MIR535 microRNA precursor family: a 99-nucleotide sequence from Trema andersonii.
The match comes from Rfam's covariance-model search (77 bits).
Gene Ontology terms of the family: RISC complex and miRNA-mediated post-transcriptional gene silencing.
A reference for the family is Zeng et al. (2010), "Conservation and divergence of microRNAs and their functions in Euphorbiaceous plants", Nucleic Acids Res.
The organism belongs to Trema, within Eukaryota.
[Rfam]
RNA sequence: UUGAUUGAAUGACAACGAGAGAGAGCACGCUUGUGUUGAUAUUCAUGGAAAGAAAACGUGACUGUGCACAUGCGUGCUCUCCCUCGUUGUCAUACAAUU
Number, nucleotide and partner (000 for none) at each position: 001u000002u000003g000004a000005u000006u000007g000008a000009a000010u092011g091012a090013c089014a088015a000016c086017g085018a000019g000020a000021g081022a000023g079024a000025g077026c076027a075028c074029g073030c072031u000032u070033g069034u068035g067036u066037u000038g000039a000040u000041a000042u000043u000044c000045a000046u000047g000048g000049a000050a000051a000052g000053a000054a000055a000056a000057c000058g000059u000060g000061a000062c000063u000064g000065u000066g036067c035068a034069c033070a032071u000072g030073c029074g028075u027076g026077c025078u000079c023080u000081c021082c000083c000084u000085c017086g016087u000088u014089g013090u012091c011092a010093u000094a000095c000096a000097a000098u000099u000